[Rfam]
Streptomyces sRNA 4677: a 175-nucleotide sequence from Streptomyces sp. RP5T.
The source organism's lineage runs through Bacteria, Actinomycetota, Kitasatosporales, Streptomycetaceae and Streptomyces.
A reference for the family is Hindra et al. (2014), "Complex intra-operonic dynamics mediated by a small RNA in Streptomyces coelicolor", PLoS One.
About the family: Located in the intergenic region between anti-sigma factor SCO4677 gene and a putative regulatory protein gene SCO4676. scr4677 expression requires the SCO4677 activity and scr4677 sRNA itself seem to affect the levels of the SCO4676-associated transcripts.
It scores 170 bits against the family's covariance model.
RNA sequence: CUCCCGCCCGUCGCCUCCGCUCACCCUCGCGAGUGAACAUCGCCAACUCGGCUGGAUUCCUGGCCCCUUGCCUGCCCUACGCUCAGCGCAACACAACCGCAGACAUGCGACGGCCCUCGCCGGGACUGCAAUCCCAGUGCGAGGGCCUGACCACCGAGGAAGAGGCAACUUCCUG
Numbered sequence: 001c002u003c004c005c006g007c008c009c010g011u012c013g014c015c016u017c018c019g020c021u022c023a024c025c026c027u028c029g030c031g032a033g034u035g036a037a038c039a040u041c042g043c044c045a046a047c048u049c050g051g052c053u054g055g056a057u058u059c060c061u062g063g064c065c066c067c068u069u070g071c072c073u074g075c076c077c078u079a080c081g082c083u084c085a086g087c088g089c090a091a092c093a094c095a096a097c098c099g100c101a102g103a104c105a106u107g108c109g110a111c112g113g114c115c116c117u118c119g120c121c122g123g124g125a126c127u128g129c130a131a132u133c134c135c136a137g138u139g140c141g142a143g144g145g146c147c148u149g150a151c152c153a154c155c156g157a158g159g160a161a162g163a164g165g166c167a168a169c170u171u172c173c174u175g
Base pairs, nucleotide, nucleotide: 021036022035023034024033026031051087052086053085054084055083112147113146114145115144116143118141119140120139122135123134124133125132158173159172160171161170162169
Dot-bracket structure: ....................((((.(....).))))..............(((((...........................)))))........................(((((.(((.((((......))))...))).)))))..........(((((......)))))..